This 109-nucleotide RNA sequence from Ascobolus immersus belongs to the Rfam family "Small nucleolar RNA snR60/Z15/Z230/Z193/J17".
A search with the family's covariance model found it, with a score of 51 bits.
It is annotated as a C/D-box small nucleolar RNA.
NCBI's taxonomy places the organism under Eukaryota, Opisthokonta, Pezizomycotina, Ascobolaceae, Ascobolus immersus.
Rfam 15.1 lists 3,592 matches to the family in 1,855 species.
RNA sequence: ACAGUGUAUUGUAUGAUGAUUGAUACCAAGCAUAGUUCAUCUGAACCUUUACUAGAGGUACUGAACGAUCCAUAUCGCAUACAUCUUUCGCUCCUAUCUGAUACACAAU
Numbered sequence: 001a002c003a004g005u006g007u008a009u010u011g012u013a014u015g016a017u018g019a020u021u022g023a024u025a026c027c028a029a030g031c032a033u034a035g036u037u038c039a040u041c042u043g044a045a046c047c048u049u050u051a052c053u054a055g056a057g058g059u060a061c062u063g064a065a066c067g068a069u070c071c072a073u074a075u076c077g078c079a080u081a082c083a084u085c086u087u088u089c090g091c092u093c094c095u096a097u098c099u100g101a102u103a104c105a106c107a108a109u
Stems, first nucleotide, its partner, number of pairs: 004106008
Dot-bracket structure: ...((((((((.......................................................................................))))))))...
Clan: SNORD77 clan.